[Rfam]
RNA sequence: GUGAGUUUGAAAUUGAAAUGCGUAAAUUGUUUGGUACAAUUUAAAUUCGAUUUCUUAUUCAUAG
Numbered sequence: 001g002u003g004a005g006u007u008u009g010a011a012a013u014u015g016a017a018a019u020g021c022g023u024a025a026a027u028u029g030u031u032u033g034g035u036a037c038a039a040u041u042u043a044a045a046u047u048c049g050a051u052u053u054c055u056u057a058u059u060c061a062u063a064g
Stems, first nucleotide, its partner, number of pairs: 001062006009054009023043008